[Rfam]
RNA sequence: CAGUCUCCUGCUUCAACAGUGCUUGAAUGGAACCUG
Numbered sequence: 001c002a003g004u005c006u007c008c009u010g011c012u013u014c015a016a017c018a019g020u021g022c023u024u025g026a027a028u029g030g031a032a033c034c035u036g
Stems, first nucleotide, its partner, number of pairs: 001036003006031003010028001012027005017021001
The record is a 36-nucleotide RNA from Chrysochloris asiatica, which matches "Iron response element I" in Rfam.
Taxonomically the source falls in Chrysochloris (Eukaryota, Craniata, Chrysochloridae, Chrysochlorinae).
Gene Ontology term of the family: response to iron ion.
A search with the family's covariance model found it, with a score of 42 bits.
Pairs were carried over by alignment from the consensus structure, which is taken from published work.
The literature on the family includes a 2008 paper in J Biol Chem by Sammarco et al., "Ferritin L and H subunits are differentially regulated on a post-transcriptional level".